c-di-GMP-I riboswitch aptamer: a 95-nucleotide sequence from Metabacillus harenarius.
For this family Rfam cites "Riboswitches in Eubacteria Sense the Second Messenger Cyclic Di-GMP" (Sudarsan et al., Science, 2008).
The match comes from Rfam's covariance-model search (63 bits).
The family has 155 seed sequences and 5,092 matches in Rfam 15.1.
[Rfam]
RNA sequence: GAUAGUAAAGGGCAAAAUCACUGAAAAGUGAUGACGCAAAGCUAUAGGGGCCUCUGUUCAUGCUAGUGCAUGUGCAAAGCUAGCCAGCUACCAUC
Numbered sequence: 001g002a003u004a005g006u007a008a009a010g011g012g013c014a015a016a017a018u019c020a021c022u023g024a025a026a027a028g029u030g031a032u033g034a035c036g037c038a039a040a041g042c043u044a045u046a047g048g049g050g051c052c053u054c055u056g057u058u059c060a061u062g063c064u065a066g067u068g069c070a071u072g073u074g075c076a077a078a079g080c081u082a083g084c085c086a087g088c089u090a091c092c093a094u095c
Stems, first nucleotide, its partner, number of pairs: 012037002017032006040089004047085002049081003056075002059072005